[Rfam]
RNA sequence: UUCUUAUCAAGAGCAGGUGGAGGGACUAGCCCGAUGAAACCCGGCAACCGACUUAUUUUUAAGCACGGUGCUAAAUCUUGCAGCUUUUUUAGCUGGGAGAUAAGAG
Number, nucleotide and partner (000 for none) at each position: 001u106002u105003c104004u103005u102006a101007u100008c099009a000010a000011g000012a000013g042014c000015a000016g041017g040018u039019g000020g000021a000022g032023g031024g030025a000026c080027u000028a078029g077030c024031c023032c022033g000034a000035u000036g000037a000038a000039a018040c017041c016042c013043g072044g071045c070046a069047a000048c068049c067050g064051a000052c000053u061054u000055a000056u000057u000058u000059u000060u000061a053062a000063g000064c050065a000066c000067g049068g048069u046070g045071c044072u043073a000074a000075a000076u098077c029078u028079u000080g026081c095082a094083g093084c092085u091086u000087u000088u000089u000090u000091a085092g084093c083094u082095g081096g000097g000098a076099g008100a007101u006102a005103a004104g003105a002106g001
RNA: SAM riboswitch aptamer (S box leader)
Organism: Sutcliffiella cohnii